[Rfam]
RNA sequence: CAAAAUGAACCAACUGCUAUAUUUGAAAAAGAAUAUAGAGGAAACUCCGCGCUUGCACCACCUGCGAUGGUGGUAGUGAUUGUGCCAAAGAAUAAGGUGACUUUGGGUGCCGUAAGGUAACGACGUUUAAUCAACCUAAGGGCAACUAUGGUUGAUGCAUAAAGUGCCACAGAGACGAGUAAAGGGAAACCUGGAAAUGGAACGCGGUAAACUCCGCAAGCAAGAAACUCAAAUUUUGGUAGAGGAAUUCAAAUUGGAUAACUGAAUCUAAUUUGUGAUCGUAAGAUAGAUAAAUAGUUGGUACACGUAAGUGAACAGAACGCGGGUUAUGAUU
Number, nucleotide and partner (000 for none) at each position: 001c000002a000003a000004a334005a333006u332007g000008a330009a302010c301011c300012a299013a298014c297015u296016g000017c038018u037019a036020u035021a034022u033023u000024u000025g000026a000027a000028a000029a000030a000031g000032a000033a022034u021035a020036u019037a018038g017039a000040g000041g000042a000043a328044a327045c326046u000047c325048c324049g323050c322051g321052c224053u223054u222055g221056c220057a074058c073059c072060a071061c070062c069063u000064g000065c000066g000067a000068u000069g062070g061071u060072g059073g058074u057075a000076g000077u000078g000079a000080u219081u218082g217083u216084g215085c106086c105087a104088a103089a102090g101091a000092a000093u000094a000095a000096g000097g000098u000099g000100a000101c090102u089103u088104u087105g086106g085107g121108u119109g118110c117111c116112g000113u000114a000115a000116g111117g110118u109119a108120a000121c107122g214123a213124c000125g158126u157127u000128u155129a000130a000131u000132c000133a153134a152135c151136c150137u000138a000139a000140g147141g146142g000143c000144a000145a000146c141147u140148a000149u000150g136151g135152u134153u133154g000155a128156u000157g126158c125159a000160u000161a000162a000163a000164g212165u211166g208167c207168c206169a000170c000171a000172g000173a000174g000175a000176c000177g000178a000179g000180u000181a000182a000183a192184g191185g190186g000187a000188a000189a000190c185191c184192u183193g000194g000195a000196a000197a000198u000199g000200g000201a000202a000203c000204g000205c000206g168207g167208u166209a000210a000211a165212c164213u123214c122215c084216g083217c082218a081219a080220g056221c055222a054223a053224g052225a000226a000227a000228c244229u243230c242231a000232a000233a000234u000235u000236u000237u000238g000239g000240u000241a000242g230243a229244g228245g000246a000247a000248u277249u000250c275251a274252a273253a272254u271255u000256g000257g000258a000259u000260a000261a000262c000263u000264g000265a000266a000267u000268c000269u000270a000271a254272u253273u252274u251275g250276u000277g248278a287279u286280c285281g000282u000283a000284a000285g280286a279287u278288a000289g000290a000291u000292a000293a000294a000295u000296a015297g014298u013299u012300g011301g010302u009303a000304c313305a312306c311307g000308u000309a000310a000311g306312u305313g304314a000315a000316c000317a000318g000319a000320a000321c051322g050323c049324g048325g047326g045327u044328u043329a000330u008331g000332a006333u005334u004
The family of this 334-nucleotide RNA sequence from Spiroplasma sp. TIUS-1 is "Bacterial RNase P class B". About the family: Ribonuclease P (RNase P) is a ubiquitous endoribonuclease, found in archaea, bacteria and eukarya as well as chloroplasts and mitochondria. Its best characterised activity is the generation of mature 5'-ends of tRNAs by cleaving the 5'-leader elements of precursor-tRNAs. Cellular RNase Ps are ribonucleoproteins. RNA from bacterial RNase Ps retains its catalytic activity in the absence of the protein subunit, i.e. it is a ribozyme. The organism belongs to Spiroplasma, within Bacteria. The family's consensus secondary structure is taken from published work. The match comes from Rfam's covariance-model search (222 bits). Rfam classes the family as a ribozyme.